[Rfam]
RNA sequence: UUGGCUGUAAGAUAUGUUUGAUAUUCUUGGUUGUUCUAUGGUCAGACCACAACCAGAUAUCAGACAUAUUAUUACAGCUGC
Numbered sequence: 001u002u003g004g005c006u007g008u009a010a011g012a013u014a015u016g017u018u019u020g021a022u023a024u025u026c027u028u029g030g031u032u033g034u035u036c037u038a039u040g041g042u043c044a045g046a047c048c049a050c051a052a053c054c055a056g057a058u059a060u061c062a063g064a065c066a067u068a069u070u071a072u073u074a075c076a077g078c079u080g081c
Base pairs, nucleotide, nucleotide: 005077006076007075008074009073011070012069013068014067015066016065017064018063019062020061021060022059023058024057025056029054030053031052032051033050
RNA: mir-190 microRNA precursor family
Organism: Daphnia galeata